[Rfam]
Source information:
tRNA: a 72-nucleotide RNA from Sarcina sp. DSM 11001. The family's consensus secondary structure is taken from published work. Rfam describes the family as follows. Transfer RNA (tRNA) molecules are approximately 80 nucleotides in length. By type it is a transfer RNA.

RNA sequence: GUCUCAUUCGUUCAAUGGAAAGGACAGGGGAUUUCUAAUCCCCCGAUACAGGUUCGAGCCCUGUAUGAGACA
Number, nucleotide and partner (000 for none) at each position: 001g071002u070003c069004u068005c067006a066007u065008u000009c000010g025011u024012u023013c022014a000015a000016u000017g000018g000019a000020a000021a000022g013023g012024a011025c010026a000027g043028g042029g041030g040031a039032u000033u000034u000035c000036u000037a000038a000039u031040c030041c029042c028043c027044c000045g000046a000047u000048a064049c063050a062051g061052g060053u000054u000055c000056g000057a000058g000059c000060c052061c051062u050063g049064u048065a007066u006067g005068a004069g003070a002071c001072a000